A member of the RNA family "Streptomyces sRNA 4677" from Streptomyces sp. PTY087I2, 264 nucleotides long. The match comes from Rfam's covariance-model search (105 bits). Rfam 15.1 lists 563 matches to the family in 285 species. Rfam describes the family as follows. Located in the intergenic region between anti-sigma factor SCO4677 gene and a putative regulatory protein gene SCO4676. scr4677 expression requires the SCO4677 activity and scr4677 sRNA itself seem to affect the levels of the SCO4676-associated transcripts. Taxonomically the source falls in Streptomyces (Bacteria, Bacillati, Actinomycetes, Streptomycetaceae). The base pairs follow the family's consensus structure.

RNA sequence: CACUGCGGCGCGACAUCAACUACCUAAAGAACCAAGAGAAAGAACCCAACCCCACCCAACCCACCCCGGUGGCCACCUGACGGACCCCAGGGGCUUUCGGGGCUUCGUCACUCACACGGGUGACAUUUCCCAACUCAGCUCGCUUUUGGGCUGGUUGCCCGGCAUAUGCUCACGCCAGAACCACAUCCCACACAUACGUCGGCCCCCGACCGGGACUGCAAUCCCAACCGAGGGCCUGGCCACCUAGGAAGUUAGGGCUUCCCG
Dot-bracket structure: ......((.(......(...........................................................................)..............((((((....))))))..............(((.(...........................).).)).........................(((((.((...((((......))))...)).)))))....).))..(((((......)))))..

A reference for the family is Hindra et al. (2014), "Complex intra-operonic dynamics mediated by a small RNA in Streptomyces coelicolor", PLoS One.